[Rfam]
c-di-GMP-II-GAG riboswitch aptamer: an 85-nucleotide RNA.
It is one of the family's seed sequences.
For this family Rfam cites "Bioinformatic analysis of riboswitch structures uncovers variant classes with altered ligand specificity" (Weinberg et al., Proc Natl Acad Sci U S A, 2017).

RNA sequence: UCCUCUGCGGGAGGCGAUGACGCGUGGCCCACGCCCCCGGUCGCCCGGUCCGCGCCGAGCCACUGGCGAGACCGACCGCAGAUCG
Numbered sequence: 001u002c003c004u005c006u007g008c009g010g011g012a013g014g015c016g017a018u019g020a021c022g023c024g025u026g027g028c029c030c031a032c033g034c035c036c037c038c039g040g041u042c043g044c045c046c047g048g049u050c051c052g053c054g055c056c057g058a059g060c061c062a063c064u065g066g067c068g069a070g071a072c073c074g075a076c077c078g079c080a081g082a083u084c085g
Stems, first nucleotide, its partner, number of pairs: 001085001004082005010077002013061003022055006029048001039073002041069005